RNA: Burkholderia RNA 11
RNA sequence: GCAACCUCAAGCUGGCGCAUGGCAAUGUGGUGGUGUUCCGCUCGCUCUUGGGCAUCAGCUGGAUGUGGUUCUUCGGCGCCGUCUUCCUGUCGCAGUUUCCGGCCUUGGCCAAAGAGGUGUUG
Numbered sequence: 001g002c003a004a005c006c007u008c009a010a011g012c013u014g015g016c017g018c019a020u021g022g023c024a025a026u027g028u029g030g031u032g033g034u035g036u037u038c039c040g041c042u043c044g045c046u047c048u049u050g051g052g053c054a055u056c057a058g059c060u061g062g063a064u065g066u067g068g069u070u071c072u073u074c075g076g077c078g079c080c081g082u083c084u085u086c087c088u089g090u091c092g093c094a095g096u097u098u099c100c101g102g103c104c105u106u107g108g109c110c111a112a113a114g115a116g117g118u119g120u121u122g
Base pairs, nucleotide, nucleotide: 010049011048014045015043017041018040021037022036023035024034026032051121052120053119054118055117060112062110063105065103067099068098071095072094074092075091076090077089078088081086